This 120-nucleotide RNA from Streptomyces nodosus belongs to the Rfam family "Streptomyces-metH RNA". It scores 100 bits against the family's covariance model. Pairs were carried over by alignment from the consensus structure, which is taken from published work.

RNA sequence: CCCGUCCGUCCCGUGGACGCCCCUGACCGUACGCCCUGCUCCGGGCUACCCUGGCCGCGUGCGUCCUCCGCAGGAGGCGCAAAGCCGACAGCCGUCGCACUCCAGGGAGCAUCUUCCAUG
Numbered sequence: 001c002c003c004g005u006c007c008g009u010c011c012c013g014u015g016g017a018c019g020c021c022c023c024u025g026a027c028c029g030u031a032c033g034c035c036c037u038g039c040u041c042c043g044g045g046c047u048a049c050c051c052u053g054g055c056c057g058c059g060u061g062c063g064u065c066c067u068c069c070g071c072a073g074g075a076g077g078c079g080c081a082a083a084g085c086c087g088a089c090a091g092c093c094g095u096c097g098c099a100c101u102c103c104a105g106g107g108a109g110c111a112u113c114u115u116c117c118a119u120g
Stems, first nucleotide, its partner, number of pairs: 060081004065077004084098002087096003